[Rfam]
Nucleotides: 379
Base pairs, nucleotide, nucleotide: 001375002374003373004372005371006370007369008368009367010366011364012320013319014318015317016316017315018314020039021038022037023036024035025034026033027032044362045361046360048359049358050357051356052355053222054221055220056219060256061255062254063253065218066217067216068215069214070084071083072082073081074080085099086097087096088095089094100213101212105211106210107207108206109205122152123151124148125147126146128144129143130142131141132140160178161177162176163175164174165173180202181200182199183198184197185196186195187194188193226277227276228275229274235268236267237266238265239264240263248260249259250258251257284303285302286301287300288299289298290297291296
Number, partner (000 for none) and nucleotide at each position: 001375a002374c003373g004372g005371a006370u007369c008368g009367g010366c011364g012320g013319a014318c015317g016316g017315c018314c019000g020039c021038g022037u023036g024035c025034c026033c027032c028000u029000g030000c031000g032027g033026g034025g035024g036023u037022g038021c039020g040000a041000g042000g043000a044362a045361a046360g047000u048359c049358c050357g051356g052355g053222c054221a055220c056219c057000g058000c059000a060256g061255a062254g063253c064000a065218g066217g067216a068215u069214g070084g071083u072082g073081g074080a075000c076000a077000a078000c079000a080074u081073c082072c083071a084070c085099c086097c087096g088095g089094g090000g091000c092000g093000a094089c095088c096087c097086g098000c099085g100213g101212g102000c103000c104000a105211g106210u107207g108206c109205c110000a111000c112000a113000g114000a115000g116000a117000g118000a119000a120000g121000a122152c123151c124148g125147c126146c127000u128144c129143c130142g131141c132140g133000c134000c135000g136000u137000g138000u139000g140132c141131g142130c143129g144128g145000c146126g147125g148124u149000a150000a151123g152122g153000g154000u155000g156000a157000a158000a159000g160178g161177g162176u163175g164174g165173u166000g167000u168000a169000a170000g171000a172000g173165a174164c175163c176162a177161c178160c179000a180202g181200c182199g183198g184197c185196c186195c187194c188193g189000g190000u191000g192000a193188c194187g195186g196185g197184g198183c199182c200181g201000g202180c203000u204000c205109g206108g207107u208000a209000a210106a211105c212101c213100c214069c215068a216067u217066c218065c219056g220055g221054u222053g223000c224000a225000a226277g227276g228275c229274c230000g231000a232000a233000c234000a235268g236267g237266a238265c239264g240263c241000g242000u243000c244000a245000c246000g247000a248260g249259g250258g251257c252000u253063g254062c255061u256060c257251g258250c259249c260248c261000c262000a263240g264239c265238g266237u267236c268235c269000g270000g271000g272000u273000u274229g275228g276227c277226c278000g279000c280000u281000c282000g283000a284303g285302c286301c287300c288299g289298u290297c291296a292000g293000c294000g295000a296291u297290g298289g299288c300287g301286g302285g303284c304000c305000c306000a307000g308000a309000u310000g311000g312000a313000u314018g315017g316016c317015c318014g319013u320012c321000a322000c323000c324000u325000c326000g327000c328000g329000c330000g331000g332000g333000g334000c335000a336000a337000c338000g339000c340000g341000c342000g343000c344000g345000a346000g347000g348000c349000a350000c351000a352000g353000a354000a355052c356051c357050c358049g359048g360046c361045u362044u363000a364011c365000a366010g367009c368008c369007g370006g371005u372004c373003c374002g375001u376000c377000c378000c379000a

About this RNA: The family of this 379-nucleotide sequence from Micrococcus luteus is "Bacterial RNase P class A". The sequence is in the family's curated seed alignment. Pairs were carried over by alignment from the consensus structure, which is taken from published work. By type it is a ribozyme. Taxonomically the source falls in Micrococcus luteus (Bacteria, Actinomycetota, Micrococcales, Micrococcaceae).